[Rfam]
RNA sequence: UGCGUGUGGGUAACGGCUGAACCAUACAGCCAAAGUGACGCAGCAUACCAAGAAGCAGGUAGUUGCUUUGCCUGCAUCGAGCACAAGCAGCCGUUCACAAAACCGUGUUCAGCUGUCCCUCACCACGGGUCGUGCCGAUUGCAAGAUGUUCGGGUAACAAAUUUGGGGGAAUCUGGCAGUGAAGCAACCGCCGCCAGAUUUUC
Numbered sequence: 001u002g003c004g005u006g007u008g009g010g011u012a013a014c015g016g017c018u019g020a021a022c023c024a025u026a027c028a029g030c031c032a033a034a035g036u037g038a039c040g041c042a043g044c045a046u047a048c049c050a051a052g053a054a055g056c057a058g059g060u061a062g063u064u065g066c067u068u069u070g071c072c073u074g075c076a077u078c079g080a081g082c083a084c085a086a087g088c089a090g091c092c093g094u095u096c097a098c099a100a101a102a103c104c105g106u107g108u109u110c111a112g113c114u115g116u117c118c119c120u121c122a123c124c125a126c127g128g129g130u131c132g133u134g135c136c137g138a139u140u141g142c143a144a145g146a147u148g149u150u151c152g153g154g155u156a157a158c159a160a161a162u163u164u165g166g167g168g169g170a171a172u173c174u175g176g177c178a179g180u181g182a183a184g185c186a187a188c189c190g191c192c193g194c195c196a197g198a199u200u201u202u203c
Base pairs, nucleotide, nucleotide: 001042002041003040004039005038015031016030017029018028019027022166023165024164026162043149044148045147046146055075056074057073058072059071060070061069062188063187064186065185066184067183068182076139077138078137079136170200171199172198173197174196175195176194177193179191180190181189
Dot-bracket structure: (((((.........(((((..{{{.{)))))......)))))((((........((((((([[[[[[[)))))))((((........................................................))))......))))............}.}}}...((((((((.(((]]]]]]]))).))))))))...
Overview
FuFi-1 RNA: a 203-nucleotide RNA sequence. The base pairs follow the family's consensus structure, which is taken from published work.